[Rfam]
RNA: Vault RNA
RNA sequence: GCGUUGGUUUAGCUCAGUGGUUACUUCCGAUUGACCGAAAAAUCACCAUCUCAUGGUCUCCGGGAAACCGGUGACCUGAGAUCGAACCACGGGUGCUGUCCAACGUUUUU
Numbered sequence: 001g002c003g004u005u006g007g008u009u010u011a012g013c014u015c016a017g018u019g020g021u022u023a024c025u026u027c028c029g030a031u032u033g034a035c036c037g038a039a040a041a042a043u044c045a046c047c048a049u050c051u052c053a054u055g056g057u058c059u060c061c062g063g064g065a066a067a068c069c070g071g072u073g074a075c076c077u078g079a080g081a082u083c084g085a086a087c088c089a090c091g092g093g094u095g096c097u098g099u100c101c102a103a104c105g106u107u108u109u110u
Stems, first nucleotide, its partner, number of pairs: 002105006012094004017090004025086003029082001